[Rfam]
RNA: RNA Staph. aureus H
RNA sequence: GUACCUUCGAAAAUUAAUUAAACAUCUCUUAAUUAAAAACAGUAUACCCCAUAAUAUACGUGCGAAGGUGAAAUUUUGACUCCCUUUAGUAUUGGGCCUAUGCGAGAAGCGUAUAGGUCCAUUAU
Numbered sequence: 001g002u003a004c005c006u007u008c009g010a011a012a013a014u015u016a017a018u019u020a021a022a023c024a025u026c027u028c029u030u031a032a033u034u035a036a037a038a039a040c041a042g043u044a045u046a047c048c049c050c051a052u053a054a055u056a057u058a059c060g061u062g063c064g065a066a067g068g069u070g071a072a073a074u075u076u077u078g079a080c081u082c083c084c085u086u087u088a089g090u091a092u093u094g095g096g097c098c099u100a101u102g103c104g105a106g107a108a109g110c111g112u113a114u115a116g117g118u119c120c121a122u123u124a125u
Base pairs, nucleotide, nucleotide: 002070003069004068005067006066007065008064009063022043026042027041029038030037044052045051083095084094086091096118097117098116099115100114101113102112103111104110